[Rfam]
RNA: L19-Flavobacteria ribosomal protein leader
RNA sequence: CAACCUCUGACGAAGGACGUGUAUGUUG
Numbered sequence: 001c002a003a004c005c006u007c008u009g010a011c012g013a014a015g016g017a018c019g020u021g022u023a024u025g026u027u028g
Base pairs, nucleotide, nucleotide: 001028002027003026004025008023010020011019012018